[Rfam]
RNA sequence: GGGGACCUUCGGGGCCCUUCACCACAUAGGCCUUUGACCAGGCCGCAAAGCAACGGAAAGACAGUAA
Numbered sequence: 001g002g003g004g005a006c007c008u009u010c011g012g013g014g015c016c017c018u019u020c021a022c023c024a025c026a027u028a029g030g031c032c033u034u035u036g037a038c039c040a041g042g043c044c045g046c047a048a049a050g051c052a053a054c055g056g057a058a059a060g061a062c063a064g065u066a067a
Stems, first nucleotide, its partner, number of pairs: 001018004006014003029044005
Rfam assigns this 67-nucleotide RNA to the family "L2-Alphaproteobacteria ribosomal protein leader". The family's RNA type in Rfam is cis-regulatory leader. The family's consensus secondary structure is taken from published work.